[Rfam]
RNA sequence: AAAAAAAAAAGUUCAGCAAUAUGUAUAAGCUUGGGAAUAAGGCUCAAGCGUUUCUACCAGGUAACCGUAAAUUACCGGACUACAUGAAGGGUGAAUGUGACA
Numbered sequence: 001a002a003a004a005a006a007a008a009a010a011g012u013u014c015a016g017c018a019a020u021a022u023g024u025a026u027a028a029g030c031u032u033g034g035g036a037a038u039a040a041g042g043c044u045c046a047a048g049c050g051u052u053u054c055u056a057c058c059a060g061g062u063a064a065c066c067g068u069a070a071a072u073u074a075c076c077g078g079a080c081u082a083c084a085u086g087a088a089g090g091g092u093g094a095a096u097g098u099g100a101c102a
Stems, first nucleotide, its partner, number of pairs: 020086006029049007058078001060076005
Shown here is a 102-nucleotide RNA from Bacillus oleivorans, a member of the family "Purine riboswitch aptamer". The base pairs follow the family's consensus structure, which is taken from published work. On this family, see Mandal et al., Cell 2003: "Riboswitches Control Fundamental Biochemical Pathways in Bacillus subtilis and Other Bacteria". Riboswitches are metabolite binding domains within certain messenger RNAs that serve as precision sensors for their corresponding targets.